[Rfam]
RNA: mir-314 microRNA precursor family
RNA sequence: UCGUAACUUGUGUGGCUUCGAAUGUACCUAGUUGAGGAAGAAUCCCAUGUCGGAUUUUGUUACCUCUGGUAUUCGAGCCAAUAAGUUCGG
Dot-bracket structure: .((.(((((((.(((((.(((..(((((.((.(((.((((..(((......))))))).))).))..)))))))))))))))))))))).